The record is a 56-nucleotide sequence from Corynebacterium riegelii, which matches "L31-Corynebacteriaceae ribosomal protein leader" in Rfam. On this family, see Eckert and Weinberg, BMC Microbiol 2020: "Discovery of 20 novel ribosomal leader candidates in bacteria and archaea". By type it is a cis-regulatory leader. Lineage of the source: Bacteria > Bacillati > Actinomycetota > Actinomycetes > Corynebacterium. Rfam's curators put it in the seed alignment.
RNA sequence: ACUCAGGCACGAUCGCCGAAAAAUGGCGAACCGACCUGAAGUUCAAUCCUGAGGGA
Number, nucleotide and partner (000 for none) at each position: 001a042002c041003u040004c038005a037006g036007g035008c000009a000010c000011g000012a000013u029014c028015g027016c026017c025018g024019a000020a000021a000022a000023a000024u018025g017026g016027c015028g014029a013030a000031c000032c000033g000034a000035c007036c006037u005038g004039a000040a003041g002042u001043u000044c000045a000046a000047u000048c000049c000050u000051g000052a000053g000054g000055g000056a000